[Rfam]
RNA sequence: UUAUUCCUUCGGGGUAGGGUGAAAUUCCCAACCGGCGGUGAUCAAAGGGGGCGCUAAGCCCGCUUUGUCAGUCCGUGACCCGAUUCGCAUUGGUGUAGCGCCGAGAGGCGUACGGCAUGCGAAGCGGUGGACCUGGUGCAAAUCCGGGACCGACAGUACAGUCUGGAUGGGAGAAGGAGAUU
Number, nucleotide and partner (000 for none) at each position: 001u000002u000003a000004u179005u178006c177007c176008u175009u174010c173011g000012g000013g000014g000015u000016a000017g029018g028019g027020u000021g000022a000023a000024a000025u000026u000027c019028c018029c017030a000031a162032c161033c152034g151035g076036c075037g074038g073039u000040g000041a000042u000043c000044a000045a000046a000047g000048g000049g000050g000051g000052c000053g000054c000055u000056a000057a000058g000059c000060c000061c000062g000063c000064u000065u000066u000067g000068u000069c000070a000071g150072u149073c038074c037075g036076u035077g000078a000079c000080c127081c126082g000083a000084u000085u000086c000087g000088c000089a000090u000091u000092g000093g000094u000095g000096u000097a000098g000099c000100g000101c000102c000103g000104a000105g000106a000107g000108g000109c000110g000111u000112a000113c000114g000115g000116c000117a000118u000119g000120c000121g000122a000123a000124g000125c000126g081127g080128u000129g000130g000131a000132c148133c147134u146135g145136g144137u000138g000139c000140a000141a000142a000143u000144c136145c135146g134147g133148g132149a072150c071151c034152g033153a000154c165155a164156g163157u000158a000159c000160a000161g032162u031163c156164u155165g154166g000167a000168u000169g000170g000171g000172a000173g010174a009175a008176g007177g006178a005179g004180a000181u000182u000
This 182-nucleotide RNA sequence from Paenibacillus montanisoli belongs to the Rfam family "FMN riboswitch aptamer (RFN element)". Taxonomically the source falls in Paenibacillus (Bacteria, Bacillati, Caryophanales, Paenibacillaceae). Pairs were carried over by alignment from the consensus structure, which is taken from published work.